[Rfam]
RNA: Mammalian CPEB3 ribozyme
RNA sequence: AGAGGUCACAAGUUUGAAGCCACAGCAGAAGUGCUCAUGGCAUGGCCCUGUCAGGUAAAUCUGUAAAUUCUGCC
Numbered sequence: 001a002g003a004g005g006u007c008a009c010a011a012g013u014u015u016g017a018a019g020c021c022a023c024a025g026c027a028g029a030a031g032u033g034c035u036c037a038u039g040g041c042a043u044g045g046c047c048c049u050g051u052c053a054g055g056u057a058a059a060u061c062u063g064u065a066a067a068u069u070c071u072g073c074c
Base pairs, nucleotide, nucleotide: 016048019046020045021044025073026072027071028070029069030068031043032042033041052063053062054061055060